[Rfam]
This 392-nucleotide sequence from Buchnera aphidicola belongs to the Rfam family "Bacterial RNase P class A". Rfam classes the family as a ribozyme. It scores 300 bits against the family's covariance model. The organism belongs to Buchnera aphidicola, within Bacteria.
RNA sequence: GAAGUUGAUCAAACAGUCGCUGUUGAUAAUACCAAUAGAGGAAAGUCCGGGCUCCAUAGGGUAAAGGUGCCAGGUAACACCUGGGAAGAAUAAUCUUACGACCAGUGCAACAGAAAAUAAACUGCCUUCUAUAAAAUUAUAUUUUAUAUAUUUUAAUAUAAAUAUUUUUAUAUAUAAAAAAAUUAAAACAGGUCAAGGUGAAAAGGUGCGGUAAGAGCGCACCGCAAAAUUGGAAACAAUUUUGGCAAUGCAAACUCCACCUGGAGCAAGGCUAAAUAGGGAAAACAUGCUACCCGCAUAUUCCCGGGUAAGCCGCUUGAAUUAAUAAGCAAUUAUUAAUCUAGAUAAAUGACUGUUAAUUACAGAACCCGGCUUAUCGAUCAACUUCAUAA
Numbered sequence: 001g002a003a004g005u006u007g008a009u010c011a012a013a014c015a016g017u018c019g020c021u022g023u024u025g026a027u028a029a030u031a032c033c034a035a036u037a038g039a040g041g042a043a044a045g046u047c048c049g050g051g052c053u054c055c056a057u058a059g060g061g062u063a064a065a066g067g068u069g070c071c072a073g074g075u076a077a078c079a080c081c082u083g084g085g086a087a088g089a090a091u092a093a094u095c096u097u098a099c100g101a102c103c104a105g106u107g108c109a110a111c112a113g114a115a116a117a118u119a120a121a122c123u124g125c126c127u128u129c130u131a132u133a134a135a136a137u138u139a140u141a142u143u144u145u146a147u148a149u150a151u152u153u154u155a156a157u158a159u160a161a162a163u164a165u166u167u168u169u170a171u172a173u174a175u176a177a178a179a180a181a182a183u184u185a186a187a188a189c190a191g192g193u194c195a196a197g198g199u200g201a202a203a204a205g206g207u208g209c210g211g212u213a214a215g216a217g218c219g220c221a222c223c224g225c226a227a228a229a230u231u232g233g234a235a236a237c238a239a240u241u242u243u244g245g246c247a248a249u250g251c252a253a254a255c256u257c258c259a260c261c262u263g264g265a266g267c268a269a270g271g272c273u274a275a276a277u278a279g280g281g282a283a284a285a286c287a288u289g290c291u292a293c294c295c296g297c298a299u300a301u302u303c304c305c306g307g308g309u310a311a312g313c314c315g316c317u318u319g320a321a322u323u324a325a326u327a328a329g330c331a332a333u334u335a336u337u338a339a340u341c342u343a344g345a346u347a348a349a350u351g352a353c354u355g356u357u358a359a360u361u362a363c364a365g366a367a368c369c370c371g372g373c374u375u376a377u378c379g380a381u382c383a384a385c386u387u388c389a390u391a392a
Base pairs, nucleotide, nucleotide: 001388002387003386004385005384006383007382008381009380010379011377012357013356014355015354016353017352018351020038021037022036023035024034025033027031043375044374045373047372048371049370050369051368052266053265054264055263060295061294065262066261067260068259069258070084071083072082073081074080085099086097087096088095089094100257101256105255106254107251108250109249122197123196124193125192126191127190130187132185133184134183205223206222207221208220209219210218224246225244226243227242228241229240230239231238232237270314271313272312273311280305281304283302284301287299288298289297290296321340322339323338324337325336326335327334328333